Annotation
A member of the RNA family "sRNA-Xcc1" from Chromobacterium sp. LK11, 84 nucleotides long. NCBI's taxonomy places the organism under Bacteria, Pseudomonadota, Betaproteobacteria, Neisseriales, Chromobacterium. By type it is a small RNA. The match comes from Rfam's covariance-model search (86 bits). The base pairs follow the family's consensus structure, which was predicted with RNAalifold.
RNA sequence: GGCCGGGUGUGCGGCUAAUACAAUACCCGCAAGGGGAAUACGCCCGCCGUCUGUAUGCGGUUUUGAGCACCCGGCCGCCCUCUC
Numbered sequence: 001g002g003c004c005g006g007g008u009g010u011g012c013g014g015c016u017a018a019u020a021c022a023a024u025a026c027c028c029g030c031a032a033g034g035g036g037a038a039u040a041c042g043c044c045c046g047c048c049g050u051c052u053g054u055a056u057g058c059g060g061u062u063u064u065g066a067g068c069a070c071c072c073g074g075c076c077g078c079c080c081u082c083u084c
Stems, first nucleotide, its partner, number of pairs: 001076009013044003016040002026035003046061005